Rfam assigns this 449-nucleotide part of an RNA from Aphis glycines to the family "Eukaryotic large subunit ribosomal RNA".
RNA sequence: CGACCUCAGAUCAGGCGGGACUACCCGCCGGAUUUAAGCAUAUUAAUAAGCGGAGGAAAAGAAAACAACCGUGAUUCCCCCAGUAGCGGCGAGCGAACAGGGAAAAGCCCAUCGCCGAAUCCCGCCGCGCACUUUUGUGUCGCGGCACGUAUGGGAGUUGUGGCGUACGGGCCGGCCUCGUUGCCGGGGCGCACGUGACGGUCCAAGUCUCCCUUGAACGGGGCCAUGGCCCGCAGAUGGUGCCAGGCCAGUAGAGGCCGUCACAGCGUUCCGGGAUCGGACCGCGCCUUCGAGUCGGGUUGCUUGAGAGUGCAGCCCGAAGCGGGUGGUAAACUCCAUCUAAGGCUAAAUACGGCCACGAGACCGAUAGUGGACAAGUACCGUGAGGGAAAGUUGAAAAGAACUUUGAAGAGAGAGUUCAUAAGAACGUGAAACCGUUCGGGUGUAAA
Numbered sequence: 001c002g003a004c005c006u007c008a009g010a011u012c013a014g015g016c017g018g019g020a021c022u023a024c025c026c027g028c029c030g031g032a033u034u035u036a037a038g039c040a041u042a043u044u045a046a047u048a049a050g051c052g053g054a055g056g057a058a059a060a061g062a063a064a065a066c067a068a069c070c071g072u073g074a075u076u077c078c079c080c081c082a083g084u085a086g087c088g089g090c091g092a093g094c095g096a097a098c099a100g101g102g103a104a105a106a107g108c109c110c111a112u113c114g115c116c117g118a119a120u121c122c123c124g125c126c127g128c129g130c131a132c133u134u135u136u137g138u139g140u141c142g143c144g145g146c147a148c149g150u151a152u153g154g155g156a157g158u159u160g161u162g163g164c165g166u167a168c169g170g171g172c173c174g175g176c177c178u179c180g181u182u183g184c185c186g187g188g189g190c191g192c193a194c195g196u197g198a199c200g201g202u203c204c205a206a207g208u209c210u211c212c213c214u215u216g217a218a219c220g221g222g223g224c225c226a227u228g229g230c231c232c233g234c235a236g237a238u239g240g241u242g243c244c245a246g247g248c249c250a251g252u253a254g255a256g257g258c259c260g261u262c263a264c265a266g267c268g269u270u271c272c273g274g275g276a277u278c279g280g281a282c283c284g285c286g287c288c289u290u291c292g293a294g295u296c297g298g299g300u301u302g303c304u305u306g307a308g309a310g311u312g313c314a315g316c317c318c319g320a321a322g323c324g325g326g327u328g329g330u331a332a333a334c335u336c337c338a339u340c341u342a343a344g345g346c347u348a349a350a351u352a353c354g355g356c357c358a359c360g361a362g363a364c365c366g367a368u369a370g371u372g373g374a375c376a377a378g379u380a381c382c383g384u385g386a387g388g389g390a391a392a393g394u395u396g397a398a399a400a401g402a403a404c405u406u407u408g409a410a411g412a413g414a415g416a417g418u419u420c421a422u423a424a425g426a427a428c429g430u431g432a433a434a435c436c437g438u439u440c441g442g443g444u445g446u447a448a449a
Base pairs, nucleotide, nucleotide: 024055025053026052027051028050035042036041065072066071076103077102078101079100086094087093106347107346108345109344113165114164115163116162117161119159120156121155122154123153170288171287173284174283175282178280179279180278186272187271188270189269190268191267192266197262198261199260200259201258202257203256207224209223210222212221213220232236239249240248297318298317299316300315301314302313303312324341325340326339327338328337381388382387404415405414406413407412